[Rfam]
Rfam assigns this 35-nucleotide RNA sequence to the family "DUF805b RNA". It is one of the family's seed sequences.

Nucleotides: 035
Base pairs, nucleotide, nucleotide: 002021003020004019005018010034011033012032
Number, partner (000 for none) and nucleotide at each position: 001000c002021a003020g004019g005018a006000g007000u008000a009000g010034u011033c012032c013000g014000a015000a016000a017000a018005u019004c020003c021002u022000u023000a024000a025000a026000a027000g028000a029000g030000u031000a032012g033011g034010g035000a